[Rfam]
RNA sequence: AGAGGUUGUAAGUUCAAGGCCACAGCAGAACCACUCACAGCACAGCCCUGUCAGAUUCCAGUGAAUCUGCAAAUUCUGUU
Numbered sequence: 001a002g003a004g005g006u007u008g009u010a011a012g013u014u015c016a017a018g019g020c021c022a023c024a025g026c027a028g029a030a031c032c033a034c035u036c037a038c039a040g041c042a043c044a045g046c047c048c049u050g051u052c053a054g055a056u057u058c059c060a061g062u063g064a065a066u067c068u069g070c071a072a073a074u075u076c077u078g079u080u
Base pairs, nucleotide, nucleotide: 018047019046020045024080025079026078027077028076029075030074052069053068054067055066056065057064058063
Shown here is an 80-nucleotide RNA sequence from Crocodylus porosus, a member of the family "Mammalian CPEB3 ribozyme". The mammalian CPEB3 ribozyme is a self cleaving RNA located in the second intron of the CPEB3 gene which belongs to a family of genes regulating messenger RNA polyadenylation. This ribozyme is highly conserved and found only in mammals. The CPEB3 ribozyme is structurally and biochemically related to the human hepatitis delta virus (HDV) ribozyme and the HDV ribozyme is proposed to have arisen from the human transcriptome. There is currently only one other known self cleaving ribozyme in mammals, the CoTC motif. It scores 40 bits against the family's covariance model. Its family is annotated with RNA nuclease activity in the Gene Ontology. Lineage of the source: Eukaryota > Bilateria > Chordata > Tetrapoda > Crocodylus. The base pairs follow the family's consensus structure, which is taken from published work.